Description:
A member of the RNA family "ES036 (CssrF) sRNA" from Enterobacteriaceae bacterium strain FGI 57, 43 nucleotides long. It is annotated as a small RNA. About the family: Differentially expressed under several chemical stress conditions. Also identified in Shigella as CssrF. The literature on the family includes a 2015 paper in BMC Genomics by Rau et al., "Differential expression of small RNAs under chemical stress and fed-batch fermentation in E. coli". The match comes from Rfam's covariance-model search (41 bits).
[Rfam]
RNA sequence: AAAAUAGUGCAAAUUCAAUAUAUUGCAGGCUCCUUGUAGGCCU
Numbered sequence: 001a002a003a004a005u006a007g008u009g010c011a012a013a014u015u016c017a018a019u020a021u022a023u024u025g026c027a028g029g030c031u032c033c034u035u036g037u038a039g040g041c042c043u
Base pairs, nucleotide, nucleotide: 004031008027009026010025011024012023